[Rfam]
RNA sequence: AAAAGUCUUCAGGGCAGGGUGUAAUUCCCGACCGGUGGUAAAGUCCACGAGCUAAUGGUGUCAUUAGUUGAACUGGUGUAAUUCCAGUACCGACAGUAAAGUCUGGAUGGGAGAAGAUGGAU
Numbered sequence: 001a002a003a004a005g006u007c008u009u010c011a012g013g014g015c016a017g018g019g020u021g022u023a024a025u026u027c028c029c030g031a032c033c034g035g036u037g038g039u040a041a042a043g044u045c046c047a048c049g050a051g052c053u054a055a056u057g058g059u060g061u062c063a064u065u066a067g068u069u070g071a072a073c074u075g076g077u078g079u080a081a082u083u084c085c086a087g088u089a090c091c092g093a094c095a096g097u098a099a100a101g102u103c104u105g106g107a108u109g110g111g112a113g114a115a116g117a118u119g120g121a122u
Stems, first nucleotide, its partner, number of pairs: 005118006017029003031102002033092002035048004043090002051068003072088005094105003
FMN riboswitch aptamer (RFN element): a 122-nucleotide sequence from Globicatella sp. HMSC072A10.
The match comes from Rfam's covariance-model search (119 bits).
Taxonomically the source falls in Globicatella (Bacteria, Bacillati, Lactobacillales, Aerococcaceae).